This 150-nucleotide sequence from Oceanivirga miroungae belongs to the Rfam family "DUF3800-I RNA".

RNA sequence: UUUAAGUACAGCAAGGAAUUAACUUGACUGUCUAAUUUUCGUGGUCACCGAAUGUAAAUUUAAGCGACUUGUAAAGUCGUCGUCCGUGAAGACUAAAUGUAGUAUAAAACUUUACCCGUGUACCUAAUAAGUUACGGGUUUUAAUUUUGA
Numbered sequence: 001u002u003u004a005a006g007u008a009c010a011g012c013a014a015g016g017a018a019u020u021a022a023c024u025u026g027a028c029u030g031u032c033u034a035a036u037u038u039u040c041g042u043g044g045u046c047a048c049c050g051a052a053u054g055u056a057a058a059u060u061u062a063a064g065c066g067a068c069u070u071g072u073a074a075a076g077u078c079g080u081c082g083u084c085c086g087u088g089a090a091g092a093c094u095a096a097a098u099g100u101a102g103u104a105u106a107a108a109a110c111u112u113u114a115c116c117c118g119u120g121u122a123c124c125u126a127a128u129a130a131g132u133u134a135c136g137g138g139u140u141u142u143a144a145u146u147u148u149g150a
Stems, first nucleotide, its partner, number of pairs: 007035001008031004012026003038090006049082002051060003064080006091140003
The match comes from Rfam's covariance-model search (49 bits). The organism belongs to Oceanivirga, within Bacteria.